Rfam assigns this 146-nucleotide sequence from Oceanobacillus piezotolerans to the family "Ribosomal protein L10 leader".
Rfam classes the family as a cis-regulatory leader.
NCBI's taxonomy places the organism under Bacteria, Bacillati, Bacilli, Caryophanales, Oceanobacillus.
RNA sequence: UUAAAACAAUAUAUUGUACCGUAGACAGUAGGGGCGACAAGCUUAAUCAGCCUACCGAGGUGUUUAUAAACAAACAGAUCUAAAUGUUAUUCUGUCGUUUGUAUAUAAAGCUCCCGUGUCUACAUGGGAGCUUUUUUAAUCGGAUA
Numbered sequence: 001u002u003a004a005a006a007c008a009a010u011a012u013a014u015u016g017u018a019c020c021g022u023a024g025a026c027a028g029u030a031g032g033g034g035c036g037a038c039a040a041g042c043u044u045a046a047u048c049a050g051c052c053u054a055c056c057g058a059g060g061u062g063u064u065u066a067u068a069a070a071c072a073a074a075c076a077g078a079u080c081u082a083a084a085u086g087u088u089a090u091u092c093u094g095u096c097g098u099u100u101g102u103a104u105a106u107a108a109a110g111c112u113c114c115c116g117u118g119u120c121u122a123c124a125u126g127g128g129a130g131c132u133u134u135u136u137u138a139a140u141c142g143g144a145u146a
Stems, first nucleotide, its partner, number of pairs: 028055005034042002110131009